[Rfam]
RNA sequence: GGUCCAUUUCCGCAAUCAAAAAACUCUAUUGUCAAGAAAUCCUAAGGAUCUG
Numbered sequence: 001g002g003u004c005c006a007u008u009u010c011c012g013c014a015a016u017c018a019a020a021a022a023a024c025u026c027u028a029u030u031g032u033c034a035a036g037a038a039a040u041c042c043u044a045a046g047g048a049u050c051u052g
Stems, first nucleotide, its partner, number of pairs: 001050005
Class I RNA from Dictyostelium: a 52-nucleotide sequence from Cavenderia fasciculata. Dictyostelium Class I RNA was first reported for Aspegren et al. 2004 in Dictyostelium discoideum. Pairs were carried over by alignment from the consensus structure, which is taken from published work. A reference for the family is Avesson et al. (2011), "Abundant class of non-coding RNA regulates development in the social amoeba Dictyostelium discoideum", RNA Biol. NCBI's taxonomy places the organism under Eukaryota, Amoebozoa, Dictyostelia, Acytosteliales, Cavenderia.